[Rfam]
RNA sequence: UGGUAGAUGCACCCUGAUUCCUGACCUCUGGCCUGCGGGCCAGGGGUUUUUUGU
Numbered sequence: 001u002g003g004u005a006g007a008u009g010c011a012c013c014c015u016g017a018u019u020c021c022u023g024a025c026c027u028c029u030g031g032c033c034u035g036c037g038g039g040c041c042a043g044g045g046g047u048u049u050u051u052u053g054u
Base pairs, nucleotide, nucleotide: 002013003012004011025046026045027044028043029042030041031040032039033038